[Rfam]
U11 spliceosomal RNA: a 137-nucleotide RNA sequence from Xenopus laevis. It is annotated as a spliceosomal small nuclear RNA.

RNA sequence: AAAAAGGGCUUGUGCUGUGUAUGGCACACUGUGGUUCUUCUGUUUGGAGAAUCGCGGUGCGGAAUCGAUAUCAAGAGAUUUCGAAAGCAUAAUUUUUGUGAACAGGGCUGCUUGUGGUCGUCAUCCCGGGCGCCCAA
Numbered sequence: 001a002a003a004a005a006g007g008g009c010u011u012g013u014g015c016u017g018u019g020u021a022u023g024g025c026a027c028a029c030u031g032u033g034g035u036u037c038u039u040c041u042g043u044u045u046g047g048a049g050a051a052u053c054g055c056g057g058u059g060c061g062g063a064a065u066c067g068a069u070a071u072c073a074a075g076a077g078a079u080u081u082c083g084a085a086a087g088c089a090u091a092a093u094u095u096u097u098g099u100g101a102a103c104a105g106g107g108c109u110g111c112u113u114g115u116g117g118u119c120g121u122c123a124u125c126c127c128g129g130g131c132g133c134c135c136a137a
Base pairs, nucleotide, nucleotide: 008088009087010086011085013026014025015024016023017022027059028058029057030056031055032054033053034052035051036050037049038048039047040046060083061082062081063080064079065078066077105135106134107133108132110131111130112129113128114127116126117125